[Rfam]
RNA: mir-8/mir-141/mir-200 microRNA precursor family
Organism: Phainopepla nitens
RNA sequence: AUUGCUGUCUUACCAGGCACAGUUAGAUCUGGGUAAUUCUGUCUAAUACUGUCUGGUAAUGCCGUCAAU
Numbered sequence: 001a002u003u004g005c006u007g008u009c010u011u012a013c014c015a016g017g018c019a020c021a022g023u024u025a026g027a028u029c030u031g032g033g034u035a036a037u038u039c040u041g042u043c044u045a046a047u048a049c050u051g052u053c054u055g056g057u058a059a060u061g062c063c064g065u066c067a068a069u
Stems, first nucleotide, its partner, number of pairs: 002068003006064002009061001010059010022047006
Dot-bracket structure: .(((.((.(((((((((((..((((((..............))))))..)))))))))).).)).))).